[Rfam]
Background:
Group II catalytic intron D1-D4-3: a 190-nucleotide sequence from Osedax symbiont Rs1. The organism belongs to Oceanospirillaceae, within Bacteria. The pairing is the family consensus, mapped onto this sequence. About the family: Group II introns are found in rRNA, tRNA and mRNA of organelles in fungi, plants and protists, and also in mRNA in bacteria.
RNA sequence: UUGACCGCGAGGUUUGGUCCGGAGGAAGCCAGUAGUCUCUUUGCUCUGUUAAGGGCGAGCUGAUGAACAAAAACAUCAUAUGAGGCGUAGGCUGGAGGCGAGUUGGCACAAGACGACGAAGCCAUGUGAUACUUUUGGUUAUAGAGCACGGCCACCGUAAAGGUGAGGUUGUGCAGUGAAAGUUCAUGUU
Numbered sequence: 001u002u003g004a005c006c007g008c009g010a011g012g013u014u015u016g017g018u019c020c021g022g023a024g025g026a027a028g029c030c031a032g033u034a035g036u037c038u039c040u041u042u043g044c045u046c047u048g049u050u051a052a053g054g055g056c057g058a059g060c061u062g063a064u065g066a067a068c069a070a071a072a073a074c075a076u077c078a079u080a081u082g083a084g085g086c087g088u089a090g091g092c093u094g095g096a097g098g099c100g101a102g103u104u105g106g107c108a109c110a111a112g113a114c115g116a117c118g119a120a121g122c123c124a125u126g127u128g129a130u131a132c133u134u135u136u137g138g139u140u141a142u143a144g145a146g147c148a149c150g151g152c153c154a155c156c157g158u159a160a161a162g163g164u165g166a167g168g169u170u171g172u173g174c175a176g177u178g179a180a181a182g183u184u185c186a187u188g189u190u
Stems, first nucleotide, its partner, number of pairs: 001016001003014004028190001030188002043183002052177001055174003058170004074165004079161001085158003090153005097123003102117004